Shown here is a 114-nucleotide RNA from Octopus sinensis, a member of the family "Potassium channel RNA editing signal". Lineage of the source: Eukaryota > Bilateria > Protostomia > Coleoidea > Octopus. Rfam's curators write: This family represents a group of sequences related to the human potassium channel Kv1.1 hairpin element which directs the efficient modification of an adenosine to inosine by an adenosine deaminase acting on RNA (ADAR). The base pairs follow the family's consensus structure, which is taken from published work. It scores 59 bits against the family's covariance model.

[Rfam]
RNA sequence: CUUGGAUAUGGUGACUAUGUUCCUGACACCCUACUCGGUUACAUUAUUGGAGCAAUAUGCUCUCUUUGUGGCGUUCUUAUGCUGGCGCUUCCAGUACCAGUUAUUGUCAAUAAU
Numbered sequence: 001c002u003u004g005g006a007u008a009u010g011g012u013g014a015c016u017a018u019g020u021u022c023c024u025g026a027c028a029c030c031c032u033a034c035u036c037g038g039u040u041a042c043a044u045u046a047u048u049g050g051a052g053c054a055a056u057a058u059g060c061u062c063u064c065u066u067u068g069u070g071g072c073g074u075u076c077u078u079a080u081g082c083u084g085g086c087g088c089u090u091c092c093a094g095u096a097c098c099a100g101u102u103a104u105u106g107u108c109a110a111u112a113a114u
Base pairs, nucleotide, nucleotide: 002113004111008107009106010105011104013102014101015100016099019097020096022094037077038076049063050062051061